[Rfam]
RNA sequence: AUAGCAAGAAUAGCGCCAGAGCUUGUCGAAGCGCGGAGUAGCGUUGAAGGGCAAAGAUCAGGAACGGGAAAGCUGAUCUAAGCGUCAAACUUCAACCUUACGAUCGCGUAGGCCGCAAGCUGACGAGGUGGGGGUGUUCGAAAUAUUCGGCGGGGACCUCCCGGCUUAUCAUCGGAGCCGACAAUCGGAACACAAAACGCUUAGGGCAACCGGGCGUACAAAAGUCCGAUACGAUGAAUG
Numbered sequence: 001a002u003a004g005c006a007a008g009a010a011u012a013g014c015g016c017c018a019g020a021g022c023u024u025g026u027c028g029a030a031g032c033g034c035g036g037a038g039u040a041g042c043g044u045u046g047a048a049g050g051g052c053a054a055a056g057a058u059c060a061g062g063a064a065c066g067g068g069a070a071a072g073c074u075g076a077u078c079u080a081a082g083c084g085u086c087a088a089a090c091u092u093c094a095a096c097c098u099u100a101c102g103a104u105c106g107c108g109u110a111g112g113c114c115g116c117a118a119g120c121u122g123a124c125g126a127g128g129u130g131g132g133g134g135u136g137u138u139c140g141a142a143a144u145a146u147u148c149g150g151c152g153g154g155g156a157c158c159u160c161c162c163g164g165c166u167u168a169u170c171a172u173c174g175g176a177g178c179c180g181a182c183a184a185u186c187g188g189a190a191c192a193c194a195a196a197a198c199g200c201u202u203a204g205g206g207c208a209a210c211c212g213g214g215c216g217u218a219c220a221a222a223a224g225u226c227c228g229a230u231a232c233g234a235u236g237a238a239u240g
Stems, first nucleotide, its partner, number of pairs: 020121007130161005138150004162180006184230006198216005204211002
Dot-bracket structure: ...................(((((((........................................................................................)))))))........(((((...((((.....))))......)))))((((((.......))))))...((((((........(((((.((....)))))))........))))))..........
A member of the RNA family "glmS glucosamine-6-phosphate activated ribozyme aptamer" from Cohnella luojiensis, 240 nucleotides long. NCBI's taxonomy places the organism under Bacteria, Bacillota, Caryophanales, Paenibacillaceae, Cohnella. The base pairs follow the family's consensus structure, which is taken from published work. The match comes from Rfam's covariance-model search (70 bits).